[Rfam]
RNA: Mammalian CPEB3 ribozyme
Organism: Chelydra serpentina
RNA sequence: AAGGAUUUUGUUGUGGACGUAACAGCAAAAGUAUUCCCAUCGUGGCCCCUGUCAGAUUCUUAUGCAUCUGUGAAUUCUGCU
Numbered sequence: 001a002a003g004g005a006u007u008u009u010g011u012u013g014u015g016g017a018c019g020u021a022a023c024a025g026c027a028a029a030a031g032u033a034u035u036c037c038c039a040u041c042g043u044g045g046c047c048c049c050u051g052u053c054a055g056a057u058u059c060u061u062a063u064g065c066a067u068c069u070g071u072g073a074a075u076u077c078u079g080c081u
Base pairs, nucleotide, nucleotide: 013049015047016046018044024081025080026079027078029076030075031043032042053070054069055068056067057066059064